[Rfam]
RNA: Streptomyces RNA 3202
Organism: Streptomyces filipinensis
RNA sequence: CCAGGUCCCGACGCAAUCCCCCCCGGCGCCGGGACCUUCCCCGGCCGGGCUCCGGCACCCAUCCCCCCUGGGUGCCGGAGCCCGGCUCUUC
Numbered sequence: 001c002c003a004g005g006u007c008c009c010g011a012c013g014c015a016a017u018c019c020c021c022c023c024c025g026g027c028g029c030c031g032g033g034a035c036c037u038u039c040c041c042c043g044g045c046c047g048g049g050c051u052c053c054g055g056c057a058c059c060c061a062u063c064c065c066c067c068c069u070g071g072g073u074g075c076c077g078g079a080g081c082c083c084g085g086c087u088c089u090u091c
Base pairs, nucleotide, nucleotide: 005035006034007033008032009031010030012028013027014026043088044086045085046084047083048082049081050080051079053077054076055075056074057073058072059071060070061069